[Rfam]
RNA sequence: UGAUAACAGGGUCGAAAAGUCACAGACCGUCCAUGCUUGCAUGGGAAGGGCUGUGACCUUGAGACCCGCCGAAUAUGAGAACGAAGCGCAUCGCGCGUAGUUCGAAUAUUCGCAGGAUUGCGACAGUUGCGCCAGCAACGGAGCAAGCCGUUGGUUUCA
Numbered sequence: 001u002g003a004u005a006a007c008a009g010g011g012u013c014g015a016a017a018a019g020u021c022a023c024a025g026a027c028c029g030u031c032c033a034u035g036c037u038u039g040c041a042u043g044g045g046a047a048g049g050g051c052u053g054u055g056a057c058c059u060u061g062a063g064a065c066c067c068g069c070c071g072a073a074u075a076u077g078a079g080a081a082c083g084a085a086g087c088g089c090a091u092c093g094c095g096c097g098u099a100g101u102u103c104g105a106a107u108a109u110u111c112g113c114a115g116g117a118u119u120g121c122g123a124c125a126g127u128u129g130c131g132c133c134a135g136c137a138a139c140g141g142a143g144c145a146a147g148c149c150g151u152u153g154g155u156u157u158c159a
Stems, first nucleotide, its partner, number of pairs: 001159003005155001007153001010066004016060002019057007027049002030046001031044005070112007079103004086096004115149002118146004126139004
Dot-bracket structure: (((.(.(..((((..((.(((((((.((.((((((....))))).).)).))))))).))..))))...(((((((..((((...((((...))))...))))..)))))))..((.((((....((((......))))...)))).))...).).)))

Source information
This 159-nucleotide RNA from Roseburia sp. CAG:309 belongs to the Rfam family "Clostridiales-1 RNA". It scores 102 bits against the family's covariance model. The family's consensus secondary structure is taken from published work. Rfam 15.1 lists 1,172 matches to the family in 137 species.